[Rfam]
Nucleotides: 069
Stems, first nucleotide, its partner, number of pairs: 004021001007018004043068003051060003
Number, partner (000 for none) and nucleotide at each position: 001000a002000a003000u004021u005000c006000g007018g008017u009016u010015u011000g012000u013000a014000g015010g016009a017008a018007c019000a020000a021004a022000u023000a024000g025000a026000a027000a028000c029000a030000a031000a032000u033000u034000u035000a036000u037000u038000c039000u040000a041000u042000a043068c044067u045066c046000c047000a048000u049000a050000a051060g052059u053058a054000c055000c056000a057000a058053u059052a060051c061000g062000c063000a064000a065000u066045g067044g068043g069000g